[Rfam]
RNA sequence: GGGCCCGGCGCGCCACCGACCUCCUGGAAGAACCGGGGGGAAGAACUACCCACCCGCCCACCCUCCCCGCCGGGAGGCCGCGCCGAAGCCCGCUUCAUCCAUCCGGGUGACCAGCUUGCAGGGGCAGGAUGCGGGCCGUUACGUUCGCCGCGACAAACCAGACAACACCCCAACAACCCCACACAGAUAACGGCCCCCGGCCGGGACCGGCAUCCCGAUCGAGGGCCUGACCGAUCAGGAAGCAGGACCUUCCCG
Numbered sequence: 001g002g003g004c005c006c007g008g009c010g011c012g013c014c015a016c017c018g019a020c021c022u023c024c025u026g027g028a029a030g031a032a033c034c035g036g037g038g039g040g041a042a043g044a045a046c047u048a049c050c051c052a053c054c055c056g057c058c059c060a061c062c063c064u065c066c067c068c069g070c071c072g073g074g075a076g077g078c079c080g081c082g083c084c085g086a087a088g089c090c091c092g093c094u095u096c097a098u099c100c101a102u103c104c105g106g107g108u109g110a111c112c113a114g115c116u117u118g119c120a121g122g123g124g125c126a127g128g129a130u131g132c133g134g135g136c137c138g139u140u141a142c143g144u145u146c147g148c149c150g151c152g153a154c155a156a157a158c159c160a161g162a163c164a165a166c167a168c169c170c171c172a173a174c175a176a177c178c179c180c181a182c183a184c185a186g187a188u189a190a191c192g193g194c195c196c197c198c199g200g201c202c203g204g205g206a207c208c209g210g211c212a213u214c215c216c217g218a219u220c221g222a223g224g225g226c227c228u229g230a231c232c233g234a235u236c237a238g239g240a241a242g243c244a245g246g247a248c249c250u251u252c253c254c255g
Stems, first nucleotide, its partner, number of pairs: 003232001009082004095110006124166001192227005198221002203216004238253005
RNA: Streptomyces sRNA 4677